[Rfam]
Overview
The family of this 281-nucleotide RNA sequence from Rhizophagus irregularis is "Group I catalytic intron". Group I catalytic introns are large self-splicing ribozymes. A reference for the family is Cech (1990), "Self-splicing of group I introns", Annu Rev Biochem.

RNA sequence: UUACAUUCUUCAUGCUGCUCUUAGUCUGUGGAGAUAAUUUUCUAGUAAUGUUCAUUGGUUGGUUCCUCUCAGCCUACCUAUGUCGUAAGAUGUAUGGUUAAAUAUCACUAUAUACUGGAAUAUCCUAAAACCUAAUUUACCUUGAUGGUAACAAUAAUUAGGAUGUAAAAUGGACAAUCAGUAGGAAACCGUAUAAGAAUGGGUUCCUCAGAGACUAAACGUGAUGCCCCUGGUAUAUAUCAGGGUGAUGAUAUAGUCCGUUCUUAUAUUGAAAGAUAUAA
Numbered sequence: 001u002u003a004c005a006u007u008c009u010u011c012a013u014g015c016u017g018c019u020c021u022u023a024g025u026c027u028g029u030g031g032a033g034a035u036a037a038u039u040u041u042c043u044a045g046u047a048a049u050g051u052u053c054a055u056u057g058g059u060u061g062g063u064u065c066c067u068c069u070c071a072g073c074c075u076a077c078c079u080a081u082g083u084c085g086u087a088a089g090a091u092g093u094a095u096g097g098u099u100a101a102a103u104a105u106c107a108c109u110a111u112a113u114a115c116u117g118g119a120a121u122a123u124c125c126u127a128a129a130a131c132c133u134a135a136u137u138u139a140c141c142u143u144g145a146u147g148g149u150a151a152c153a154a155u156a157a158u159u160a161g162g163a164u165g166u167a168a169a170a171u172g173g174a175c176a177a178u179c180a181g182u183a184g185g186a187a188a189c190c191g192u193a194u195a196a197g198a199a200u201g202g203g204u205u206c207c208u209c210a211g212a213g214a215c216u217a218a219a220c221g222u223g224a225u226g227c228c229c230c231u232g233g234u235a236u237a238u239a240u241c242a243g244g245g246u247g248a249u250g251a252u253a254u255a256g257u258c259c260g261u262u263c264u265u266a267u268a269u270u271g272a273a274a275g276a277u278a279u280a281a
Stems, first nucleotide, its partner, number of pairs: 007034007042050001103226004108221001113183006123174003184207002189202004211259001213258005228245007266279005